[Rfam]
Background: mir-130 microRNA precursor family: an 82-nucleotide RNA sequence from Ornithorhynchus anatinus.
RNA sequence: CCCAAGCCUGUGCUCUUUCCACUAAGCCACACUGCUUCUUUAAAAGCAGCAUGGCCUAGUGGAAAGAGCAUGGGCUUGAGGG
Numbered sequence: 001c002c003c004a005a006g007c008c009u010g011u012g013c014u015c016u017u018u019c020c021a022c023u024a025a026g027c028c029a030c031a032c033u034g035c036u037u038c039u040u041u042a043a044a045a046g047c048a049g050c051a052u053g054g055c056c057u058a059g060u061g062g063a064a065a066g067a068g069c070a071u072g073g074g075c076u077u078g079a080g081g082g
Base pairs, nucleotide, nucleotide: 001082002081003080005076006075007074008073009072010071012069013068014067015066016065017064018063019062022059023058024057026055027054028053029052